[Rfam]
RNA sequence: CUUGAGGAAGCGUUUUGCCUACGUUGACAGAAAUCGCUCCCUCAAGGGCGUGCUUUAUGCCAAGUAGGCAAAACGCUUCCUCAGGG
Numbered sequence: 001c002u003u004g005a006g007g008a009a010g011c012g013u014u015u016u017g018c019c020u021a022c023g024u025u026g027a028c029a030g031a032a033a034u035c036g037c038u039c040c041c042u043c044a045a046g047g048g049c050g051u052g053c054u055u056u057a058u059g060c061c062a063a064g065u066a067g068g069c070a071a072a073a074c075g076c077u078u079c080c081u082c083a084g085g086g
Stems, first nucleotide, its partner, number of pairs: 001085021024063003028059002031056003035052003040047002
Shown here is an 86-nucleotide RNA sequence from Gossypium gossypioides, a member of the family "MIR7486 microRNA precursor family". NCBI's taxonomy places the organism under Eukaryota, Viridiplantae, Euphyllophyta, Spermatophyta, Gossypium. Rfam links the family to the GO terms RISC complex and miRNA-mediated post-transcriptional gene silencing. It scores 67 bits against the family's covariance model. The base pairs follow the family's consensus structure, which was predicted with RNAalifold. The family has 9 seed sequences and 10,132 matches in Rfam 15.1.